Rfam assigns this 130-nucleotide sequence from Actinoplanes auranticolor to the family "Actinobacteria sRNA Ms_IGR-7". For this family Rfam cites "Identification of small RNAs in Mycobacterium smegmatis using heterologous Hfq" (Li et al., RNA, 2013). The family has 14 seed sequences and 463 matches in Rfam 15.1.
RNA sequence: CGAGAGUGUCCUUCCAAGCCGGUCUGAUCAGGGUCCUAGACAAACCCGAUUAUCCCAGCUCAGAGGGCAUUCUCACCUUAUCUGCACCCAGUCUUCAGUCAAUGCGAACCGAUCCAACCCACGGAUCGAG
Numbered sequence: 001c002g003a004g005a006g007u008g009u010c011c012u013u014c015c016a017a018g019c020c021g022g023u024c025u026g027a028u029c030a031g032g033g034u035c036c037u038a039g040a041c042a043a044a045c046c047c048g049a050u051u052a053u054c055c056c057a058g059c060u061c062a063g064a065g066g067g068c069a070u071u072c073u074c075a076c077c078u079u080a081u082c083u084g085c086a087c088c089c090a091g092u093c094u095u096c097a098g099u100c101a102a103u104g105c106g107a108a109c110c111g112a113u114c115c116a117a118c119c120c121a122c123g124g125a126u127c128g129a130g
Stems, first nucleotide, its partner, number of pairs: 002074012017060001019058001021056002025052004031047001033045002100128001102126002105123002
Lineage of the source: Bacteria > Bacillati > Micromonosporales > Micromonosporaceae > Actinoplanes.
Rfam classes the family as a small RNA.